Shown here is a 76-nucleotide RNA sequence from Lingula anatina, a member of the family "mir-252 microRNA precursor family". A reference for the family is Ruby et al. (2006), "Large-scale sequencing reveals 21U-RNAs and additional microRNAs and endogenous siRNAs in C. elegans", Cell. Rfam links the family to the GO terms miRNA-mediated post-transcriptional gene silencing and RISC complex. The match comes from Rfam's covariance-model search (62 bits).
RNA sequence: CAUCGGUACUAAGUAGUAGUGCCGCAGGUAACGCUGGUUCAACUUAUUACCUGCACUCUACUGCUUACUAUCGCCU
Numbered sequence: 001c002a003u004c005g006g007u008a009c010u011a012a013g014u015a016g017u018a019g020u021g022c023c024g025c026a027g028g029u030a031a032c033g034c035u036g037g038u039u040c041a042a043c044u045u046a047u048u049a050c051c052u053g054c055a056c057u058c059u060a061c062u063g064c065u066u067a068c069u070a071u072c073g074c075c076u
Stems, first nucleotide, its partner, number of pairs: 004073004010067010024054007